[Rfam]
Shown here is a 352-nucleotide part of an RNA from Leptotrichia hofstadii, a member of the family "Bacterial small subunit ribosomal RNA". On this family, see Yusupov et al., Science 2001: "Crystal structure of the ribosome at 5.5 A resolution". Its family is annotated with structural constituent of ribosome and ribosome in the Gene Ontology. Pairs were carried over by alignment from the consensus structure, which is taken from published work. NCBI's taxonomy places the organism under Bacteria, Fusobacteriati, Fusobacteriales, Leptotrichiaceae, Leptotrichia hofstadii. The family has 99 seed sequences and 42,628 matches in Rfam 15.1.
Nucleotides: 352
Stems, first nucleotide, its partner, number of pairs: 001315003009312001011198004016192001018191003022085007030078002032074009045063007089185003092181004100174007107151001111147007122133003159166002203244006212238002217233004255311006263289011293300002317344003326337004
Number, partner (000 for none) and nucleotide at each position: 001315g002314g003313c004000a005000u006000a007000a008000a009312g010000g011198g012197c013196a014195u015000c016192u017000a018191g019190g020189c021000g022085g023084c024083c025082a026081g027080g028079c029000a030078a031077g032074u033073c034072u035071g036070g037069g038068g039067u040066g041000a042000a043000a044000a045063c046062u047061u048060g049059c050058g051057g052000c053000u054000c055000a056000a057051c058050c059049g060048c061047a062046a063045g064000c065000c066040u067039g068038c069037c070036c071035u072034g073033g074032a075000a076000a077031c078030u079028g080027c081026c082025u083024g084023g085022c086000u087000a088000g089185a090184g091183u092181g093180c094179u095178g096000g097000a098000g099000a100174g101173g102172u103171g104170g105169a106168c107151g108000g109000a110000a111147c112146u113145g114144c115143a116142c117141g118000a119000g120000u121000a122133g123132a124131g125000g126000u127000g128000a129000a130000a131124u132123u133122c134000g135000u136000a137000g138000a139000u140000a141117u142116g143115u144114g145113c146112a147111g148000g149000a150000a151107u152000g153000c154000c155000g156000a157000u158000g159166a160165u161000g162000a163000a164000g165160a166159u167000a168106g169105u170104u171103c172102a173101c174100u175000g176000g177000a178095c179094g180093g181092c182000a183091a184090c185089u186000g187000a188000c189020g190019c191018u192016g193000a194000a195014g196013u197012g198011c199000g200000a201000a202000a203244g204243c205242u206241g207240g208239g209000g210000g211000a212238g213237c214000g215000a216000a217233c218232a219231g220230g221000a222000u223000u224000a225000g226000a227000u228000a229000c230220c231219c232218u233217g234000g235000u236000a237213g238212u239208c240207c241206c242205a243204g244203c245000c246000g247000u248000a249000a250000a251000c252000g253000a254000u255311g256310a257309u258308u259307a260306c261000u262000g263289g264288g265287u266286g267285u268284g269283g270282g271281c272280a273279u274000g275000a276000a277000g278000a279273g280272u281271g282270u283269c284268c285267g286266u287265g288264c289263c290000g291000a292000a293300g294299c295000a296000a297000a298000u299294g300293c301000g302000a303000u304000a305000a306260g307259u308258a309257a310256u311255c312009c313003g314002c315001c316000u317344g318343g319342g320000g321000a322000g323000u324000a325000c326337g327336g328335c329334c330000g331000c332000a333000a334329g335328g336327c337326u338000g339000a340000a341000a342319c343318u344317c345000a346000a347000a348000g349000g350000a351000a352000u